[Rfam]
A member of the RNA family "Group II catalytic intron D1-D4-6" from Falsiroseomonas bella, 223 nucleotides long.
The source organism's lineage runs through Bacteria, Pseudomonadati, Pseudomonadota, Acetobacterales and Falsiroseomonas.
From the family's description: Group II introns are found in rRNA, tRNA and mRNA of organelles in fungi, plants and protists, and also in mRNA in bacteria.

RNA sequence: AAAGAGCCGCACGUUGAAGGUGUAGCCGACCACGACGGCCCCGAGUCAUGCGCUGGCGCCCGCGAGGGCGGCGGCGAAGCGUUGACAGGGGAAACCGCGGGCUGGGUAUUGAGCCGCGAAAUGUUUGUACUCCAGGGCGCCGACGCUGUAGAGAUAAGCGGAAGGCCACACGACGCGCACCAUCAUGGCGAGGUGCAUGUCGGCCCUGCGCGGUCCGAGACCC
Numbered sequence: 001a002a003a004g005a006g007c008c009g010c011a012c013g014u015u016g017a018a019g020g021u022g023u024a025g026c027c028g029a030c031c032a033c034g035a036c037g038g039c040c041c042c043g044a045g046u047c048a049u050g051c052g053c054u055g056g057c058g059c060c061c062g063c064g065a066g067g068g069c070g071g072c073g074g075c076g077a078a079g080c081g082u083u084g085a086c087a088g089g090g091g092a093a094a095c096c097g098c099g100g101g102c103u104g105g106g107u108a109u110u111g112a113g114c115c116g117c118g119a120a121a122u123g124u125u126u127g128u129a130c131u132c133c134a135g136g137g138c139g140c141c142g143a144c145g146c147u148g149u150a151g152a153g154a155u156a157a158g159c160g161g162a163a164g165g166c167c168a169c170a171c172g173a174c175g176c177g178c179a180c181c182a183u184c185a186u187g188g189c190g191a192g193g194u195g196c197a198u199g200u201c202g203g204c205c206c207u208g209c210g211c212g213g214u215c216c217g218a219g220a221c222c223c
Stems, first nucleotide, its partner, number of pairs: 012037005019031003023191001025189002039091004045086004049081002051076005057070005110217001111215001113214006133208006139166003144160004171202005177196005